RNA sequence: GCGAGCGUGGCGGAAUAGGCAGACGCGCAGGCUUGAGGGGUCUGUUUUCUUAAGAAAGUAAGGGUUCGACUCCCUUCGCUCGCA
Numbered sequence: 001g002c003g004a005g006c007g008u009g010g011c012g013g014a015a016u017a018g019g020c021a022g023a024c025g026c027g028c029a030g031g032c033u034u035g036a037g038g039g040g041u042c043u044g045u046u047u048u049c050u051u052a053a054g055a056a057a058g059u060a061a062g063g064g065u066u067c068g069a070c071u072c073c074c075u076u077c078g079c080u081c082g083c084a
Base pairs, nucleotide, nucleotide: 001083002082003081004080005079006078007077010026011025012024028044029043030042031041032040060076061075062074063073064072
RNA: tRNA